[Rfam]
RNA sequence: UGGAGAAACAUCAUUGAGUGCAGCGUUGAUGAAUUCCCUGCAAUUUUCUGGAAUUUGGGGAUGAUUUCACCAGCGCUGCAUUCAAUCAUGUUUUUU
Numbered sequence: 001u002g003g004a005g006a007a008a009c010a011u012c013a014u015u016g017a018g019u020g021c022a023g024c025g026u027u028g029a030u031g032a033a034u035u036c037c038c039u040g041c042a043a044u045u046u047u048c049u050g051g052a053a054u055u056u057g058g059g060g061a062u063g064a065u066u067u068c069a070c071c072a073g074c075g076c077u078g079c080a081u082u083c084a085a086u087c088a089u090g091u092u093u094u095u096u
Base pairs, nucleotide, nucleotide: 006093007092008091009090010089011088013086014085015084016083017082018081019080020079021078022077023076024075025074026073027072028071030069031068032067
Shown here is a 96-nucleotide RNA from Manihot esculenta, a member of the family "MIR397 microRNA precursor family". For this family Rfam cites "Rice MicroRNA effector complexes and targets" (Wu et al., Plant Cell, 2009). Gene Ontology terms of the family: RISC complex and miRNA-mediated post-transcriptional gene silencing.